[Rfam]
RNA sequence: UUGACGGUGAACUCCCACGUGGUGUCACCGCCCGUCAGCACCUCGUCGCCGAAGCGCUCGCCGUCGGCCAUGGUGUCCAGCACGGUCUGGUCGCCGUACUCGCCCUGGCCGAUCUUGUUCACCUUGCCGUGCGCGAUGAGGUAGAUCUCUUCGGCCGGACGACCCGACUCGACCAGGAGGUCGCCGGGCUGGAACUCGCGCUGCCGGAACCGGCUCGCCAACGCGGCCAGCACCUCGUCGUCCGGGAAGUCGCGCAGCAGGGGCAGCUCGCGCAGCUCCUGCGGGAUCACCCGGAUCUCGGCGCCGGUGCUGGUGAAGCUCACCCGCCCGUCGCCGAGCGCGUAGGUGAGUCGGCGGUUGACCCGGUAGGUGCCUGCCUGGGUGGUGACCCAGGGCAACUUGCGCAACAGCCACCGGGGCGAGAUGCCCUGCAUCUGCGGGGUGGACUUGGUGGUGCUGGCCAGGUUCCGCGCGCUCGCGGUGCUCAGGCUCUGGCGCUGCUG
Numbered sequence: 001u002u003g004a005c006g007g008u009g010a011a012c013u014c015c016c017a018c019g020u021g022g023u024g025u026c027a028c029c030g031c032c033c034g035u036c037a038g039c040a041c042c043u044c045g046u047c048g049c050c051g052a053a054g055c056g057c058u059c060g061c062c063g064u065c066g067g068c069c070a071u072g073g074u075g076u077c078c079a080g081c082a083c084g085g086u087c088u089g090g091u092c093g094c095c096g097u098a099c100u101c102g103c104c105c106u107g108g109c110c111g112a113u114c115u116u117g118u119u120c121a122c123c124u125u126g127c128c129g130u131g132c133g134c135g136a137u138g139a140g141g142u143a144g145a146u147c148u149c150u151u152c153g154g155c156c157g158g159a160c161g162a163c164c165c166g167a168c169u170c171g172a173c174c175a176g177g178a179g180g181u182c183g184c185c186g187g188g189c190u191g192g193a194a195c196u197c198g199c200g201c202u203g204c205c206g207g208a209a210c211c212g213g214c215u216c217g218c219c220a221a222c223g224c225g226g227c228c229a230g231c232a233c234c235u236c237g238u239c240g241u242c243c244g245g246g247a248a249g250u251c252g253c254g255c256a257g258c259a260g261g262g263g264c265a266g267c268u269c270g271c272g273c274a275g276c277u278c279c280u281g282c283g284g285g286a287u288c289a290c291c292c293g294g295a296u297c298u299c300g301g302c303g304c305c306g307g308u309g310c311u312g313g314u315g316a317a318g319c320u321c322a323c324c325c326g327c328c329c330g331u332c333g334c335c336g337a338g339c340g341c342g343u344a345g346g347u348g349a350g351u352c353g354g355c356g357g358u359u360g361a362c363c364c365g366g367u368a369g370g371u372g373c374c375u376g377c378c379u380g381g382g383u384g385g386u387g388a389c390c391c392a393g394g395g396c397a398a399c400u401u402g403c404g405c406a407a408c409a410g411c412c413a414c415c416g417g418g419g420c421g422a423g424a425u426g427c428c429c430u431g432c433a434u435c436u437g438c439g440g441g442g443u444g445g446a447c448u449u450g451g452u453g454g455u456g457c458u459g460g461c462c463a464g465g466u467u468c469c470g471c472g473c474g475c476u477c478g479c480g481g482u483g484c485u486c487a488g489g490c491u492c493u494g495g496c497g498c499u500g501c502u503g
Base pairs, nucleotide, nucleotide: 006390007389008388010386012384014382015381016380019327021325022324025322027320029318032315035313036312037311038310039309040308041307042306045305047303048302049301050300051299052298054233057230058229060227061226062225063224064223065111066110067109068108075103077102079100080099082097083096084095085094086093117222118221119220122217127212129210130209132206133204134203135202138199140197143196144195149192150191154189155188156187158185160183166173235295236294240290241289251281252280254278256277257276258275260271262269329342330341331340353377356374357373361371362370363369391431392430393429394428395427396426397425399423400422401421403418405416437475438474439473442471443470444469445468446467447465448464449463450462451461452460479500480499481498483496484495486494487493488492
The family of this 503-nucleotide RNA from Saccharothrix ecbatanensis is "Saccharopolyspora sRNA 350". The literature on the family includes a 2013 paper in PLoS One by Liu et al., "Prediction and characterization of small non-coding RNAs related to secondary metabolites in Saccharopolyspora erythraea". Its family is annotated with regulation of secondary metabolite biosynthetic process in the Gene Ontology. Taxonomically the source falls in Saccharothrix (Bacteria, Bacillati, Pseudonocardiales, Pseudonocardiaceae). The base pairs follow the family's consensus structure, which was predicted with RNAfold.